[Rfam]
RNA sequence: GGGUGAUGUGAUGGCAUACCAUCUUUCGGGACUGACUCUAUAAUGGAGAUUACUUUUUGAUUUUACUGAUCACUU
Numbered sequence: 001g002g003g004u005g006a007u008g009u010g011a012u013g014g015c016a017u018a019c020c021a022u023c024u025u026u027c028g029g030g031a032c033u034g035a036c037u038c039u040a041u042a043a044u045g046g047a048g049a050u051u052a053c054u055u056u057u058u059g060a061u062u063u064u065a066c067u068g069a070u071c072a073c074u075u
Stems, first nucleotide, its partner, number of pairs: 001075006
Small nucleolar RNA SNORD2: a 75-nucleotide RNA from Perca flavescens. The match comes from Rfam's covariance-model search (64 bits). By type it is a C/D-box small nucleolar RNA. For this family Rfam cites "Identification of a novel box C/D snoRNA from mouse nucleolar cDNA library" (Zhou et al., Gene, 2004).